[Rfam]
RNA sequence: UUUUUCUUUGCUUAUGACUUAUCCUUAUGGACAUGAGUUUCUAUUUCUUCAUUUCUAGAAAGUAACCACAGUGCACACAAGAAGACAAGUAACUGCCCUAGAUUGUAGAUACUGAGGUGGAUCUCUUUCUUAACGUCCAGUGUCCUUUGUCUUAAGAUUUGGUGCAAUAUAU
Numbered sequence: 001u002u003u004u005u006c007u008u009u010g011c012u013u014a015u016g017a018c019u020u021a022u023c024c025u026u027a028u029g030g031a032c033a034u035g036a037g038u039u040u041c042u043a044u045u046u047c048u049u050c051a052u053u054u055c056u057a058g059a060a061a062g063u064a065a066c067c068a069c070a071g072u073g074c075a076c077a078c079a080a081g082a083a084g085a086c087a088a089g090u091a092a093c094u095g096c097c098c099u100a101g102a103u104u105g106u107a108g109a110u111a112c113u114g115a116g117g118u119g120g121a122u123c124u125c126u127u128u129c130u131u132a133a134c135g136u137c138c139a140g141u142g143u144c145c146u147u148u149g150u151c152u153u154a155a156g157a158u159u160u161g162g163u164g165c166a167a168u169a170u171a172u
Stems, first nucleotide, its partner, number of pairs: 012071002015068002019064001025060002029053002033049001035047003039043001094166003098162005114143001116141001118139004
RNA: Small nucleolar RNA SNORA81
Organism: Bos taurus